Notes: The record is an 86-nucleotide RNA from Argiope bruennichi, which matches "mir-276 microRNA precursor family" in Rfam. The source organism's lineage runs through Eukaryota, Arthropoda, Entelegynae, Araneidae and Argiope. Pairs were carried over by alignment from the consensus structure, which was predicted with RNAalifold. The family has 42 seed sequences and 200 matches in Rfam 15.1. On this family, see Li et al., BMC Genomics 2009: "Direct sequencing and expression analysis of a large number of miRNAs in Aedes aegypti and a multi-species survey of novel mosquito miRNAs".
RNA sequence: UAUGUUGUUCAUCGUGAGCGAGGUAUGGAGUUCUUACUGUGAAAGCAGCGGGUAGGAACUUCAUACCAUGCUCGCGAUGAGUCGGC
Numbered sequence: 001u002a003u004g005u006u007g008u009u010c011a012u013c014g015u016g017a018g019c020g021a022g023g024u025a026u027g028g029a030g031u032u033c034u035u036a037c038u039g040u041g042a043a044a045g046c047a048g049c050g051g052g053u054a055g056g057a058a059c060u061u062c063a064u065a066c067c068a069u070g071c072u073c074g075c076g077a078u079g080a081g082u083c084g085g086c
Stems, first nucleotide, its partner, number of pairs: 012077003017072004022067005028061010